RNA: Group II catalytic intron D1-D4-7
RNA sequence: CCCACUGUUCAGCCAGUGGAGCCCACCGACACAUGCGGGAGGAGUAAUCGUCCGGUAUGAAGCUGUCGGAAACGUACCCGCGGGGAACCGUAGGACAAGUCGUGAGAGGAAUCCGAACCUGGUAGCAACGACCGGGGAGGGGC
Number, nucleotide and partner (000 for none) at each position: 001c000002c019003c018004a017005c016006u015007g014008u000009u000010c000011a000012g000013c000014c007015a006016g005017u004018g003019g002020a000021g000022c000023c000024c000025a000026c000027c068028g067029a066030c065031a064032c059033a058034u057035g056036c055037g000038g053039g052040a051041g000042g049043a048044g000045u000046a000047a000048u043049c042050g000051u040052c039053c038054g000055g036056u035057a034058u033059g032060a000061a000062g000063c000064u031065g030066u029067c028068g027069g000070a000071a000072a000073c000074g000075u000076a000077c000078c000079c000080g091081c090082g089083g088084g000085g000086a000087a000088c083089c082090g081091u080092a000093g114094g113095a112096c000097a000098a000099g000100u107101c106102g000103u000104g000105a000106g101107a100108g000109g000110a000111a000112u095113c094114c093115g000116a000117a000118c136119c135120u134121g133122g132123u131124a000125g000126c000127a000128a000129c000130g000131a123132c122133c121134g120135g119136g118137g000138a000139g000140g000141g000142g000143c000